Ribosomal S15 leader: a 117-nucleotide RNA sequence from Shewanella pealeana. The E. coli Ribosomal S15 gene 5' UTR can form two alternative structures. One that is a series of three hairpins, The other includes a pseudoknot. This structure causes translational regulation of the S15 protein. Taxonomically the source falls in Shewanella pealeana (Bacteria, Gammaproteobacteria, Alteromonadales, Shewanellaceae).

RNA sequence: CCCUUUGGCUGAGUUAGUGAUCGGCUAAAGAUUUUUUAAUGUAAUAUUUUGGAGAUAGAAAUGUCACUAAGUGUUGAAGCUAAAGCUCAAAUCCUAGCUGAAUUUGGUCGUUGUGAA
Dot-bracket structure: ......((((((........)))))).....................(((((.(..........).)))))..............................................
The family's consensus secondary structure is taken from published work.